[Rfam]
RNA sequence: GUUACAUGAUCCCUUCAGAACUGUGAGUGCUUGUCACUAAGAUGACCUCUGUCACCCUUGACUGAUAGCC
Numbered sequence: 001g002u003u004a005c006a007u008g009a010u011c012c013c014u015u016c017a018g019a020a021c022u023g024u025g026a027g028u029g030c031u032u033g034u035c036a037c038u039a040a041g042a043u044g045a046c047c048u049c050u051g052u053c054a055c056c057c058u059u060g061a062c063u064g065a066u067a068g069c070c
Base pairs, nucleotide, nucleotide: 001069002068003067004066027037028036029035

The record is a 70-nucleotide RNA from Equus caballus, which matches "Small nucleolar RNA SNORD83" in Rfam. By type it is a C/D-box small nucleolar RNA. Rfam links the family to the GO terms nucleolus and RNA processing. The organism belongs to Equus, within Eukaryota. The match comes from Rfam's covariance-model search (40 bits).